[Rfam]
RNA: SAM riboswitch aptamer (S box leader)
Organism: Heliobacterium mobile
RNA sequence: CUCUUAUCACGAGAUGGCUGAGGGACUGGCCCUAUGAAGCCCGGCAACCGGUUUUUCUAAAACACGGUGCCAAAUCCUGCGGGAUGCGUAAGUGUCCUGAGAGAUAAGGG
Numbered sequence: 001c002u003c004u005u006a007u008c009a010c011g012a013g014a015u016g017g018c019u020g021a022g023g024g025a026c027u028g029g030c031c032c033u034a035u036g037a038a039g040c041c042c043g044g045c046a047a048c049c050g051g052u053u054u055u056u057c058u059a060a061a062a063c064a065c066g067g068u069g070c071c072a073a074a075u076c077c078u079g080c081g082g083g084a085u086g087c088g089u090a091a092g093u094g095u096c097c098u099g100a101g102a103g104a105u106a107a108g109g110g
Stems, first nucleotide, its partner, number of pairs: 001110008013042001016041003022032003026079001028077002043071004048067002050063001052061002075102001080099006